[Rfam]
Rfam assigns this 131-nucleotide RNA from Sapajus apella to the family "U4 spliceosomal RNA". It scores 75 bits against the family's covariance model. Rfam's curators write: U4 small nuclear RNA (U4 snRNA) is a component of the major U2-dependent spliceosome. Lineage of the source: Eukaryota > Opisthokonta > Haplorrhini > Simiiformes > Sapajus.

RNA sequence: AGAUUUGCUCAGUGGCACUAUUAUAGCCAGAGGCGUGAUUAUUGCUAAUUGAAAACUUUUCCCAAUACCCUGCCAUGAUGACUUGAAAUACAGUCAGCCUUGGCAAUUUUUGAAUCUCUAUGGAAUAAAGA
Numbered sequence: 001a002g003a004u005u006u007g008c009u010c011a012g013u014g015g016c017a018c019u020a021u022u023a024u025a026g027c028c029a030g031a032g033g034c035g036u037g038a039u040u041a042u043u044g045c046u047a048a049u050u051g052a053a054a055a056c057u058u059u060u061c062c063c064a065a066u067a068c069c070c071u072g073c074c075a076u077g078a079u080g081a082c083u084u085g086a087a088a089u090a091c092a093g094u095c096a097g098c099c100u101u102g103g104c105a106a107u108u109u110u111u112g113a114a115u116c117u118c119u120a121u122g123g124a125a126u127a128a129a130g131a
Base pairs, nucleotide, nucleotide: 020039021038022037023036024035026034027033028032072104073103074102075100077098079096080095081094082093083092117131118130119129